[Rfam]
The family of this 96-nucleotide RNA sequence from Camphora micrantha is "MIR535 microRNA precursor family". Rfam 15.1 lists 544 matches to the family in 108 species. On this family, see Zeng et al., Nucleic Acids Res 2010: "Conservation and divergence of microRNAs and their functions in Euphorbiaceous plants". Taxonomically the source falls in Camphora (Eukaryota, Streptophytina, Euphyllophyta, Magnoliopsida). Its family is annotated with RISC complex and miRNA-mediated post-transcriptional gene silencing in the Gene Ontology. It scores 78 bits against the family's covariance model.

RNA sequence: GGCAAUGGAUGACAACGAGAGAGAGCACGGUUGUCGGCAUUCAUGCGAUGUGACACGAAUGUUUACGAGCGUGCUCUAUCUCGUUGUCACUACUCU
Numbered sequence: 001g002g003c004a005a006u007g008g009a010u011g012a013c014a015a016c017g018a019g020a021g022a023g024a025g026c027a028c029g030g031u032u033g034u035c036g037g038c039a040u041u042c043a044u045g046c047g048a049u050g051u052g053a054c055a056c057g058a059a060u061g062u063u064u065a066c067g068a069g070c071g072u073g074c075u076c077u078a079u080c081u082c083g084u085u086g087u088c089a090c091u092a093c094u095c096u
Base pairs, nucleotide, nucleotide: 010089011088012087013086014085016083017082020079023076025074026073027072028071029070031068032067033066034065
Dot-bracket structure: .........(((((.((..(..(.(((((.((((..............................)))).))))).)..)..)).))))).......